[Rfam]
RNA sequence: GGGAUGCUUCUUGCUCAAAUGAGUAUUCCACAAUCUCAUUAAACAAAGAACAGCCCUUUUUCAGCCUCUGAUUGGAAUAAUUUGAAAUACUCAUUUGGGCAAGAAGCUUUGC
Numbered sequence: 001g002g003g004a005u006g007c008u009u010c011u012u013g014c015u016c017a018a019a020u021g022a023g024u025a026u027u028c029c030a031c032a033a034u035c036u037c038a039u040u041a042a043a044c045a046a047a048g049a050a051c052a053g054c055c056c057u058u059u060u061u062c063a064g065c066c067u068c069u070g071a072u073u074g075g076a077a078u079a080a081u082u083u084g085a086a087a088u089a090c091u092c093a094u095u096u097g098g099g100c101a102a103g104a105a106g107c108u109u110u111g112c
Base pairs, nucleotide, nucleotide: 004109006107007106008105010103011102012101013100014099015098016097017096018095019094020093021092022091023090024089025088026087027086029084030083
Dot-bracket structure: ...(.(((.((((((((((((((((((.((....................................................)).)))))))))))))))))).))).)...

Rfam assigns this 112-nucleotide sequence from Solanum commersonii to the family "MIR828 microRNA precursor family". The match comes from Rfam's covariance-model search (74 bits). For this family Rfam cites "Arabidopsis lyrata small RNAs: transient MIRNA and small interfering RNA loci within the Arabidopsis genus" (Ma et al., Plant Cell, 2010). Rfam links the family to the GO terms RISC complex and miRNA-mediated post-transcriptional gene silencing. Rfam 15.1 lists 204 matches to the family in 134 species.